[Rfam]
RNA sequence: UACCCCAUGGAAUGCUCAGGUCCGCCGCAUCUCCUGGGUCCCGUGGGGCGGUCGGUCGGUCUCCUGCUCAGGUGGUUUCCUCGUACCGCCGCGGGAUGACCGGCCGGCCACUUU
Numbered sequence: 001u002a003c004c005c006c007a008u009g010g011a012a013u014g015c016u017c018a019g020g021u022c023c024g025c026c027g028c029a030u031c032u033c034c035u036g037g038g039u040c041c042c043g044u045g046g047g048g049c050g051g052u053c054g055g056u057c058g059g060u061c062u063c064c065u066g067c068u069c070a071g072g073u074g075g076u077u078u079c080c081u082c083g084u085a086c087c088g089c090c091g092c093g094g095g096a097u098g099a100c101c102g103g104c105c106g107g108c109c110a111c112u113u114u
Stems, first nucleotide, its partner, number of pairs: 003048008015038006050109011
RNA: EcpR1
Organism: Fulvimarina manganoxydans